Annotation
This 52-nucleotide RNA sequence from Marinibacterium profundimaris belongs to the Rfam family "serC leader". Rfam links the family to the GO term regulation of gene expression. It is annotated as a cis-regulatory leader. From the family's description: This family is a putative regulatory RNA structure that is found upstream of the serC-serA operon in some alpha-proteobacteria.
RNA sequence: CGGUGGGACACCCCUCCCCAACGAGGGGCGUUUAUCUGGAAGGGUAGAUAGA
Numbered sequence: 001c002g003g004u005g006g007g008a009c010a011c012c013c014c015u016c017c018c019c020a021a022c023g024a025g026g027g028g029c030g031u032u033u034a035u036c037u038g039g040a041a042g043g044g045u046a047g048a049u050a051g052a
Stems, first nucleotide, its partner, number of pairs: 011028006032047006